About this RNA
Shown here is a 103-nucleotide RNA from Oceanobacillus oncorhynchi, a member of the family "SAM riboswitch aptamer (S box leader)". The source organism's lineage runs through Bacteria, Bacillati, Bacillota, Caryophanales and Oceanobacillus.
RNA sequence: UUCUUAUCGAGAAAGGUGGAGGGACUGGCCCGCUGAAGCCUUAGCAGCAGACGUUGAUUUGUACUGUGCUAAUUCCAGAAGCAUUUUUGCUUGAAGAUAAGAA
Numbered sequence: 001u002u003c004u005u006a007u008c009g010a011g012a013a014a015g016g017u018g019g020a021g022g023g024a025c026u027g028g029c030c031c032g033c034u035g036a037a038g039c040c041u042u043a044g045c046a047g048c049a050g051a052c053g054u055u056g057a058u059u060u061g062u063a064c065u066g067u068g069c070u071a072a073u074u075c076c077a078g079a080a081g082c083a084u085u086u087u088u089g090c091u092u093g094a095a096g097a098u099a100a101g102a103a
Stems, first nucleotide, its partner, number of pairs: 001103008013042005021031003025078004043070004048066002050062001052061002074095001079092005